Overview:
This 106-nucleotide sequence from Streptacidiphilus jiangxiensis belongs to the Rfam family "Glycine riboswitch aptamer". It scores 57 bits against the family's covariance model. Rfam describes the family as follows. This family represents the bacterial glycine riboswitch. The organism belongs to Streptacidiphilus, within Bacteria.
RNA sequence: CGAACCCGCGCGGGAGAGCUCGGCGACACAGCACCACGUCUGGUCGCCGGCGCCGAAGGAGCAAGUCCUCCCCCGAAUCUCUCAGGCACAACACCGCACGGGCGAG
Dot-bracket structure: .....(((.((((......((((((((...............)))))))).(((((..(((...(........)....))))).)))......)))).))).....